Rfam assigns this 80-nucleotide RNA from Turnera subulata to the family "small nucleolar RNA snoR117". NCBI's taxonomy places the organism under Eukaryota, Viridiplantae, Embryophyta, rosids, Turnera. The family's RNA type in Rfam is C/D-box small nucleolar RNA. On this family, see Chen and Wu, Nucleic Acids Res 2009: "Mining small RNA sequencing data: a new approach to identify small nucleolar RNAs in Arabidopsis". A search with the family's covariance model found it, with a score of 62 bits.
RNA sequence: GGCCAAUGACGCUUAAAAUUUGUCCGUACCAUCUGAGAUACUUCUUUGAUGUACUCAACUAUCCUUAUUUUCUGAGGCUU
Numbered sequence: 001g002g003c004c005a006a007u008g009a010c011g012c013u014u015a016a017a018a019u020u021u022g023u024c025c026g027u028a029c030c031a032u033c034u035g036a037g038a039u040a041c042u043u044c045u046u047u048g049a050u051g052u053a054c055u056c057a058a059c060u061a062u063c064c065u066u067a068u069u070u071u072c073u074g075a076g077g078c079u080u
Base pairs, nucleotide, nucleotide: 001079002078003077004076